Glycine riboswitch aptamer: a 101-nucleotide RNA from Kibdelosporangium aridum. The organism belongs to Kibdelosporangium, within Bacteria. Its family is annotated with glycine biosynthetic process in the Gene Ontology.
[Rfam]
RNA sequence: CGACGUCGCGCGGGAGAGACCGGGUUGCUCAUACGCCGCCCGGCACCGAAGGAGCAAUUCCUCCCCGGAACCUCUCAGGUACCAAGGACCGCGCGAAGAAG
Numbered sequence: 001c002g003a004c005g006u007c008g009c010g011c012g013g014g015a016g017a018g019a020c021c022g023g024g025u026u027g028c029u030c031a032u033a034c035g036c037c038g039c040c041c042g043g044c045a046c047c048g049a050a051g052g053a054g055c056a057a058u059u060c061c062u063c064c065c066c067g068g069a070a071c072c073u074c075u076c077a078g079g080u081a082c083c084a085a086g087g088a089c090c091g092c093g094c095g096a097a098g099a100a101g
Stems, first nucleotide, its partner, number of pairs: 006096008020043006045080003048076002052074003058068002